[Rfam]
RNA sequence: ACCCAUGCACCUGAUGAGAAUUCUGCUGCUGAGGUUGUGUGAUUGCUCAAACUCAAAGUAAACGCCCUGAUGCAUGUACA
Number, nucleotide and partner (000 for none) at each position: 001a000002c000003c000004c000005a075006u074007g073008c072009a071010c000011c000012u019013g000014a000015u000016g000017a000018g000019a012020a000021u000022u000023c000024u000025g000026c000027u000028g000029c000030u049031g048032a047033g046034g000035u000036u000037g000038u000039g000040u000041g000042a000043u000044u000045g000046c033047u032048c031049a030050a000051a000052c000053u000054c000055a000056a000057a000058g000059u000060a000061a000062a000063c000064g000065c000066c000067c000068u000069g000070a000071u009072g008073c007074a006075u005076g000077u000078a000079c000080a000